[Rfam]
RNA sequence: AGUAAGGGUAGAGGUGCAAAGACCAUUAAUACUUACAUGGAGGAGAAUGAGCUCUGAAGAAAUGUGAGGAAAGGGGGAUUUGCCGAAGUGGAAGAAGACUCAUCUUCUGAAGCUGGGCCUGUUAUCAAAUAGAUACGGGACUGUCAUAUAGGAAACUAUAUGGAGGGCUAUCAAGCUU
Numbered sequence: 001a002g003u004a005a006g007g008g009u010a011g012a013g014g015u016g017c018a019a020a021g022a023c024c025a026u027u028a029a030u031a032c033u034u035a036c037a038u039g040g041a042g043g044a045g046a047a048u049g050a051g052c053u054c055u056g057a058a059g060a061a062a063u064g065u066g067a068g069g070a071a072a073g074g075g076g077g078a079u080u081u082g083c084c085g086a087a088g089u090g091g092a093a094g095a096a097g098a099c100u101c102a103u104c105u106u107c108u109g110a111a112g113c114u115g116g117g118c119c120u121g122u123u124a125u126c127a128a129a130u131a132g133a134u135a136c137g138g139g140a141c142u143g144u145c146a147u148a149u150a151g152g153a154a155a156c157u158a159u160a161u162g163g164a165g166g167g168c169u170a171u172c173a174a175g176c177u178u
Stems, first nucleotide, its partner, number of pairs: 007172005016083005023076002032068007087114003093108006115142002118139004123135004144163007
This 178-nucleotide RNA sequence from Oceanobacillus profundus belongs to the Rfam family "Lysine riboswitch aptamer". The base pairs follow the family's consensus structure, which is taken from published work.